[Rfam]
RNA sequence: ACUAAAUCACAUGACUGGCGGAAGUGGAAUUAACCACAUGGAGUGUGAUUUAAAGAGAUGAGCCGACCGCCUGGGCAAAGAUU
Dot-bracket structure: ..((((((((((..(.[[[[[..((((......))))..)..)))))))))).........(((..]]]]]..))).......
Rfam assigns this 83-nucleotide RNA from Caldisalinibacter kiritimatiensis to the family "ZMP/ZTP riboswitch aptamer (pfl RNA motif)". Lineage of the source: Bacteria > Bacillati > Tissierellia > Thermohalobacteraceae > Caldisalinibacter. Pairs were carried over by alignment from the consensus structure, which is taken from published work. On this family, see Ren et al., Structure 2015: "Global RNA Fold and Molecular Recognition for a pfl Riboswitch Bound to ZMP, a Master Regulator of One-Carbon Metabolism".